[Rfam]
Nucleotides: 096
Base pairs, nucleotide, nucleotide: 006081007080008079009078010077011076012075015072016071017070018069020067021066022065024063025061028059029058030057031056032055033054035052036051
Number, partner (000 for none) and nucleotide at each position: 001000u002000c003000c004000a005000u006081g007080g008079g009078u010077a011076g012075g013000u014000g015072a016071g017070c018069c019000a020067c021066u022065g023000a024063c025061u026000c027000a028059u029058g030057c031056a032055c033054a034000u035052u036051g037000u038000g039000c040000u041000u042000u043000c044000u045000u046000u047000g048000a049000c050000c051036c052035a053000c054033u055032g056031u057030g058029c059028g060000u061025g062000u063024g064000a065022c066021a067020g068000c069018g070017g071016c072015u073000a074000a075012c076011u077010u078009g079008c080007u081006u082000u083000u084000a085000g086000g087000a088000c089000a090000a091000c092000a093000g094000c095000a096000a